[Rfam]
RNA sequence: UGACUUUGGUCAAAGUCAAACUACUCUAAGUUUGACUAAUUUUAUAGAAAAAAGUAGUAGUAUUUUAAUUUAAGACAAAUAUAUUAUGAAAAUUUAUUCAAUUAUAGAUUUAAUGAGACUAUGCUAGUGUUAUAAAUAUUACUACUUUUUUCUAUAGAAUUAGUCAAAUUUAGAGUAGUUUGACUUUGACCAAAGUCAA
Numbered sequence: 001u002g003a004c005u006u007u008g009g010u011c012a013a014a015g016u017c018a019a020a021c022u023a024c025u026c027u028a029a030g031u032u033u034g035a036c037u038a039a040u041u042u043u044a045u046a047g048a049a050a051a052a053a054g055u056a057g058u059a060g061u062a063u064u065u066u067a068a069u070u071u072a073a074g075a076c077a078a079a080u081a082u083a084u085u086a087u088g089a090a091a092a093u094u095u096a097u098u099c100a101a102u103u104a105u106a107g108a109u110u111u112a113a114u115g116a117g118a119c120u121a122u123g124c125u126a127g128u129g130u131u132a133u134a135a136a137u138a139u140u141a142c143u144a145c146u147u148u149u150u151u152c153u154a155u156a157g158a159a160u161u162a163g164u165c166a167a168a169u170u171u172a173g174a175g176u177a178g179u180u181u182g183a184c185u186u187u188g189a190c191c192a193a194a195g196u197c198a199a
Base pairs, nucleotide, nucleotide: 005194006193007192008191009190011188012187013186014185015184016183017182018181019180020179021178022177023176024175025174026173031168032167033166034165035164045154046153047152048151049150050149051148052147055144056143057142059140060139061138062137063136064135065134066132067131071127073125074124
RNA: MIR1435 microRNA precursor family
Organism: Oryza rufipogon